Annotation: The record is a 117-nucleotide sequence from Cellvibrio japonicus, which matches "TPP riboswitch aptamer (THI element)" in Rfam. Taxonomically the source falls in Cellvibrio japonicus (Bacteria, Pseudomonadati, Cellvibrionaceae, Cellvibrio). Pairs were carried over by alignment from the consensus structure, which is taken from published work.
[Rfam]
RNA sequence: GCCCUCUUGUCGGGGCGCCUUGGUAGCACAGCUAUUGCGAAGGCUGAGAUGGGUUCGGCCCAACCCGUAGAACCUGAUCAGGUUGAGACCUGCGGAGGGAACAAGUGCUGCCCAUCC
Numbered sequence: 001g002c003c004c005u006c007u008u009g010u011c012g013g014g015g016c017g018c019c020u021u022g023g024u025a026g027c028a029c030a031g032c033u034a035u036u037g038c039g040a041a042g043g044c045u046g047a048g049a050u051g052g053g054u055u056c057g058g059c060c061c062a063a064c065c066c067g068u069a070g071a072a073c074c075u076g077a078u079c080a081g082g083u084u085g086a087g088a089c090c091u092g093c094g095g096a097g098g099g100a101a102c103a104a105g106u107g108c109u110g111c112c113c114a115u116c117c
Stems, first nucleotide, its partner, number of pairs: 006105005011067004017044005051061004073098003079092004